[Rfam]
RNA sequence: GAGUGUUACAGCGCUUUUCGAAUUUGUCUAGCAGGCUUUCCAGUACUUACAGAAAAACCCUC
Numbered sequence: 001g002a003g004u005g006u007u008a009c010a011g012c013g014c015u016u017u018u019c020g021a022a023u024u025u026g027u028c029u030a031g032c033a034g035g036c037u038u039u040c041c042a043g044u045a046c047u048u049a050c051a052g053a054a055a056a057a058c059c060c061u062c
Stems, first nucleotide, its partner, number of pairs: 034059002037056003041052001043050002
The family of this 62-nucleotide sequence from Sapajus apella is "U7 small nuclear RNA". Rfam describes the family as follows. Animal histone pre-mRNAs are spliced by a different mechanism than nuclear pre-mRNAs and self-splicing introns. The match comes from Rfam's covariance-model search (51 bits). For this family Rfam cites "3' end processing of mouse histone pre-mRNA: evidence for additional base-pairing between U7 snRNA and pre-mRNA" (Spycher et al., Nucleic Acids Res, 1994). NCBI's taxonomy places the organism under Eukaryota, Opisthokonta, Vertebrata, Theria, Sapajus.